The family of this 134-nucleotide RNA from Peribacillus psychrosaccharolyticus is "Ribosomal protein L20 leader". NCBI's taxonomy places the organism under Bacteria, Bacillota, Caryophanales, Bacillaceae, Peribacillus.

[Rfam]
RNA sequence: GAGUGAAAGAAGGAGCACCCGCUUCUCACCUGACGACGCAAUAAGUUGUCUGCAGGUCAUGAUUUGAUUAUUUGAAUUUAUUCAACUUAGUCUAUCAGUGUGGGUGUCAUAGGCAUCGACGCUUUUUUUGUGCG
Dot-bracket structure: ..........((((((....)))))).(((....(((((.....)).)))....))).........................................(((.((((((...)))))).))).............